This 112-nucleotide sequence from a Rhodospirillaceae bacterium belongs to the Rfam family "Group II catalytic intron D1-D4-4". Rfam describes the family as follows. Group II introns are found in rRNA, tRNA and mRNA of organelles in fungi, plants and protists, and also in mRNA in bacteria.
[Rfam]
RNA sequence: CAGUGGAGGAAGGAUCCACCCGGACAGUUAUCGGUAAGGUCCGGUAGCUGACAGGCGAUUUCGCUGGGCAACCGGCGGGGUCGAAGCCCUGUGGCAAAGGCCGCCAACGCGC
Numbered sequence: 001c002a003g004u005g006g007a008g009g010a011a012g013g014a015u016c017c018a019c020c021c022g023g024a025c026a027g028u029u030a031u032c033g034g035u036a037a038g039g040u041c042c043g044g045u046a047g048c049u050g051a052c053a054g055g056c057g058a059u060u061u062c063g064c065u066g067g068g069c070a071a072c073c074g075g076c077g078g079g080g081u082c083g084a085a086g087c088c089c090u091g092u093g094g095c096a097a098a099g100g101c102c103g104c105c106a107a108c109g110c111g112c
Stems, first nucleotide, its partner, number of pairs: 020044005051092005056083006065074001067072001103112002